[Rfam]
Nucleotides: 125
Stems, first nucleotide, its partner, number of pairs: 002124004007119001009117001011115002015111002018108007026100014041085007
Number, partner (000 for none) and nucleotide at each position: 001000a002124g003123a004122g005121u006000u007119u008000u009117a010000a011115a012114a013000g014000g015111c016110g017000g018108u019107u020106c021105u022104u023103a024102a025000c026100u027099u028098u029097u030096a031095a032094c033093u034092a035091a036090a037089a038088a039087a040000a041085u042084u043083a044082a045081g046080a047079a048000c049000c050000g051000g052000c053000u054000u055000u056000u057000a058000a059000a060000u061000a062000a063000g064000a065000g066000u067000u068000u069000u070000a071000a072000a073000a074000g075000a076000c077000g078000g079047u080046u081045c082044u083043u084042a085041a086000c087039u088038u089037u090036u091035u092034u093033a094032g095031u096030u097029a098028a099027a100026a101000u102024u103023u104022a105021a106020g107019a108018g109000a110016c111015g112000a113000g114012u115011u116000c117009u118000u119007a120000u121005a122004u123003u124002c125000c
Background: The family of this 125-nucleotide RNA from Brassica carinata is "MIR9563 microRNA precursor family". The base pairs follow the family's consensus structure, which was predicted with RNAalifold. The organism belongs to Brassica, within Eukaryota.